[Rfam]
RNA sequence: GUAUAAUGACGAAACCCAUGCGUGUCAACUGACUCUGUAAACUCCUUCGUGUUGAUACUCUGGUUGGCGUUCUGCUAGCUUGAGCACUCGGCGCAGUAGGAGUCCAGAGACAUGAUCAUAACUCACUUCUGAAUAC
Numbered sequence: 001g002u003a004u005a006a007u008g009a010c011g012a013a014a015c016c017c018a019u020g021c022g023u024g025u026c027a028a029c030u031g032a033c034u035c036u037g038u039a040a041a042c043u044c045c046u047u048c049g050u051g052u053u054g055a056u057a058c059u060c061u062g063g064u065u066g067g068c069g070u071u072c073u074g075c076u077a078g079c080u081u082g083a084g085c086a087c088u089c090g091g092c093g094c095a096g097u098a099g100g101a102g103u104c105c106a107g108a109g110a111c112a113u114g115a116u117c118a119u120a121a122c123u124c125a126c127u128u129c130u131g132a133a134u135a136c
Stems, first nucleotide, its partner, number of pairs: 001136004042099002045096002048093003
RNA: Small nucleolar RNA SNORD10